[Rfam]
RNA sequence: GACGAAAUAUGGCACUAGUAGAAAUCACUGUAGCCAACACCCAGUGGUUUCACAGGUGCCAUAAAUUGGA
Numbered sequence: 001g002a003c004g005a006a007a008u009a010u011g012g013c014a015c016u017a018g019u020a021g022a023a024a025u026c027a028c029u030g031u032a033g034c035c036a037a038c039a040c041c042c043a044g045u046g047g048u049u050u051c052a053c054a055g056g057u058g059c060c061a062u063a064a065a066u067u068g069g070a
Base pairs, nucleotide, nucleotide: 003068004067005066008063009062010061011060012059013058016054022050023049024048025047026046027045028044029043030042
This 70-nucleotide sequence from Ciona savignyi belongs to the Rfam family "mir-183 microRNA precursor family". The source organism's lineage runs through Eukaryota, Bilateria, Ascidiacea, Phlebobranchia and Ciona. Pairs were carried over by alignment from the consensus structure, which was predicted with RNAalifold.